Annotation:
This 108-nucleotide RNA from Peribacillus asahii belongs to the Rfam family "Guanidine-I riboswitch aptamer". Gene Ontology term of the family: regulation of gene expression.

RNA sequence: AAAAAAGCUCUCUAGGGUUCCGUUUAAAGUUCAAACUUUAAAGACUGGUCCGAGAGAGAGCGUACAGCAUAGCGGCUGUAUACACGGAAGGAUAAAAGCCUGGGAGAU
Numbered sequence: 001a002a003a004a005a006a007g008c009u010c011u012c013u014a015g016g017g018u019u020c021c022g023u024u025u026a027a028a029g030u031u032c033a034a035a036c037u038u039u040a041a042a043g044a045c046u047g048g049u050c051c052g053a054g055a056g057a058g059a060g061c062g063u064a065c066a067g068c069a070u071a072g073c074g075g076c077u078g079u080a081u082a083c084a085c086g087g088a089a090g091g092a093u094a095a096a097a098g099c100c101u102g103g104g105a106g107a108u
Base pairs, nucleotide, nucleotide: 007061008060009059010058011057012056015051016050020048021047022045023042024041025040026039027038028037062081063080064079065078066077067076068075083103085106089101090100091099
About the family: This family represents a conserved RNA structure found upstream of the ykkC and yxkD genes in Bacillus subtilis and related genes in other bacteria.